[Rfam]
RNA sequence: GGUCAAUGAUGUGAUGUAAAAGGUCUGAUGCGCAGCUCCACUGCCUGCUAUCCAUCGGCUCCUAACAGCUCCUGCUCUACUCCCAGCCUGCUCUAGUUGUGCAUCGUUGGACACGGGCUGCUGACAUGUAGGAUGAUGACACAUCCUGUGUCUUUAAGAAACCAUGGAGUCACUGUGACAGAAGUCCAACAGAACCAUUCGCUAAGGAGUAUCAGGCUGUGAUAUGGGGCUGGGCCGCUGAUCUCAACUUUCAAACUGAGACU
Numbered sequence: 001g002g003u004c005a006a007u008g009a010u011g012u013g014a015u016g017u018a019a020a021a022g023g024u025c026u027g028a029u030g031c032g033c034a035g036c037u038c039c040a041c042u043g044c045c046u047g048c049u050a051u052c053c054a055u056c057g058g059c060u061c062c063u064a065a066c067a068g069c070u071c072c073u074g075c076u077c078u079a080c081u082c083c084c085a086g087c088c089u090g091c092u093c094u095a096g097u098u099g100u101g102c103a104u105c106g107u108u109g110g111a112c113a114c115g116g117g118c119u120g121c122u123g124a125c126a127u128g129u130a131g132g133a134u135g136a137u138g139a140c141a142c143a144u145c146c147u148g149u150g151u152c153u154u155u156a157a158g159a160a161a162c163c164a165u166g167g168a169g170u171c172a173c174u175g176u177g178a179c180a181g182a183a184g185u186c187c188a189a190c191a192g193a194a195c196c197a198u199u200c201g202c203u204a205a206g207g208a209g210u211a212u213c214a215g216g217c218u219g220u221g222a223u224a225u226g227g228g229g230c231u232g233g234g235c236c237g238c239u240g241a242u243c244u245c246a247a248c249u250u251u252c253a254a255a256c257u258g259a260g261a262c263u
Stems, first nucleotide, its partner, number of pairs: 001263004034244002037241002041219001043217005059209004063123002066120004083110005091101001131187001135186003140181001148173003152169005
Shown here is a 263-nucleotide sequence from Oncorhynchus mykiss, a member of the family "Small Cajal body specific RNA 6". It scores 86 bits against the family's covariance model. From the family's description: U88 is small Cajal body specific RNA (scaRNA). scaRNAs are a novel class of small nuclear RNAs which localise to the Cajal bodies. Rfam 15.1 lists 1,309 matches to the family in 627 species. NCBI's taxonomy places the organism under Eukaryota, Bilateria, Osteoglossocephalai, Clupeocephala, Oncorhynchus. Pairs were carried over by alignment from the consensus structure, which is taken from published work.